[Rfam]
A member of the RNA family "Y RNA" from Prolemur simus, 102 nucleotides long. The family's consensus secondary structure is taken from published work.
RNA sequence: GGUUGGUCUGAGUGCAGUGGUGUUUAAAACUAAUUGAUCACAACCAGUUAGAGAUUCCUCUGUUCCUUCUCCACUCCCACUGCUUCACUUGACCAGCCUUUA
Numbered sequence: 001g002g003u004u005g006g007u008c009u010g011a012g013u014g015c016a017g018u019g020g021u022g023u024u025u026a027a028a029a030c031u032a033a034u035u036g037a038u039c040a041c042a043a044c045c046a047g048u049u050a051g052a053g054a055u056u057c058c059u060c061u062g063u064u065c066c067u068u069c070u071c072c073a074c075u076c077c078c079a080c081u082g083c084u085u086c087a088c089u090u091g092a093c094c095a096g097c098c099u100u101u102a
Base pairs, nucleotide, nucleotide: 001098002097003096004095005094006093007092008091010090011089014086016081017080018079019078020077022076032064033063034062036060037059
The family's RNA type in Rfam is non-coding RNA gene. Lineage of the source: Eukaryota > Deuterostomia > Euteleostomi > Amniota > Prolemur.